The family of this 100-nucleotide RNA sequence from Clostridium fallax is "Purine riboswitch aptamer". Lineage of the source: Bacteria > Bacillota > Eubacteriales > Clostridiaceae > Clostridium. The match comes from Rfam's covariance-model search (85 bits).

RNA sequence: AAUAAUAUUCGUAAGAUAACUCAUAUAGUUCUAGCAAUAAGGGCUAGAAGUUUCUACCAGAUACCGUAAAUAUCUGACUAUGGGUGGAUUUUAUGAAGGU
Numbered sequence: 001a002a003u004a005a006u007a008u009u010c011g012u013a014a015g016a017u018a019a020c021u022c023a024u025a026u027a028g029u030u031c032u033a034g035c036a037a038u039a040a041g042g043g044c045u046a047g048a049a050g051u052u053u054c055u056a057c058c059a060g061a062u063a064c065c066g067u068a069a070a071u072a073u074c075u076g077a078c079u080a081u082g083g084g085u086g087g088a089u090u091u092u093a094u095g096a097a098g099g100u
Base pairs, nucleotide, nucleotide: 019085020084021083022082023081024080025079029049030048031047032046033045034044035043058076059075060074061073062072063071